[Rfam]
RNA sequence: AUUCCCUGUGAUGCUAUAACUUACCAUGCUAAUUCUGAUCAUUGAAGUAGUGAUUGAUUCGUACUUUGUUUCUGAGGGAAUU
Number, nucleotide and partner (000 for none) at each position: 001a081002u080003u079004c078005c077006c076007u075008g000009u000010g000011a000012u000013g000014c000015u000016a000017u000018a000019a000020c000021u000022u000023a000024c000025c000026a000027u000028g000029c000030u000031a000032a000033u000034u000035c000036u000037g000038a000039u000040c000041a000042u000043u000044g000045a000046a000047g000048u000049a000050g000051u000052g000053a000054u000055u000056g000057a000058u000059u000060c000061g000062u000063a000064c000065u000066u000067u000068g000069u000070u000071u000072c000073u000074g000075a007076g006077g005078g004079a003080a002081u001082u000
The family of this 82-nucleotide sequence from Cannabis sativa is "Small nucleolar RNA snoR53Y". It is annotated as a C/D-box small nucleolar RNA. The family has 7 seed sequences and 513 matches in Rfam 15.1.